This 88-nucleotide sequence from Actinomadura harenae belongs to the Rfam family "ZMP/ZTP riboswitch aptamer (pfl RNA motif)".
Pairs were carried over by alignment from the consensus structure, which is taken from published work.
RNA sequence: UGACCCGCAAGCGACUGGCGCAGUCAAGGUGGAGCCGACCACCGGGGAGCGAACCGCCGUCCGCACACCGCGCGCCUGGGUGUACGGG
Numbered sequence: 001u002g003a004c005c006c007g008c009a010a011g012c013g014a015c016u017g018g019c020g021c022a023g024u025c026a027a028g029g030u031g032g033a034g035c036c037g038a039c040c041a042c043c044g045g046g047g048a049g050c051g052a053a054c055c056g057c058c059g060u061c062c063g064c065a066c067a068c069c070g071c072g073c074g075c076c077u078g079g080g081u082g083u084a085c086g087g088g
Stems, first nucleotide, its partner, number of pairs: 005056001007054001011050002015046002017076005029042004065083005